Overview
Rfam assigns this 78-nucleotide RNA sequence from Lactuca sativa to the family "Small nucleolar RNA R160". NCBI's taxonomy places the organism under Eukaryota, Euphyllophyta, Asteraceae, Lactucinae, Lactuca. From the family's description: snoR160 is a C/D box small nucleolar RNA, which acts as a methylation guide for 25S ribosomal RNA in plants. snoR160 has been alternatively named snoZ270 in rice.

RNA sequence: UGCAAAAUGAUGAGAAACUUUAAUCUGAAUUUUAAUUGUUGAAUUCAUUUAUAUUACCUUCAAAGUUCUCUGAUUGCU
Numbered sequence: 001u002g003c004a005a006a007a008u009g010a011u012g013a014g015a016a017a018c019u020u021u022a023a024u025c026u027g028a029a030u031u032u033u034a035a036u037u038g039u040u041g042a043a044u045u046c047a048u049u050u051a052u053a054u055u056a057c058c059u060u061c062a063a064a065g066u067u068c069u070c071u072g073a074u075u076g077c078u
Base pairs, nucleotide, nucleotide: 002077003076004075005074
Source information
By type it is a C/D-box small nucleolar RNA.